[Rfam]
RNA sequence: UGUUGUUUAUGAUGUGGCUAGAUUAAAGCCUUUGGGACAUCUAGUUGCUGAUGUUGCCAUA
Number, nucleotide and partner (000 for none) at each position: 001u061002g060003u059004u000005g057006u000007u000008u000009a000010u000011g000012a000013u000014g048015u047016g046017g045018c044019u043020a042021g041022a040023u039024u000025a000026a000027a000028g000029c036030c035031u000032u000033u000034g000035g030036g029037a000038c000039a023040u022041c021042u020043a019044g018045u017046u016047g015048c014049u000050g000051a000052u000053g000054u000055u000056g000057c005058c000059a003060u002061a001
RNA: Selenocysteine insertion sequence 1
Organism: Python bivittatus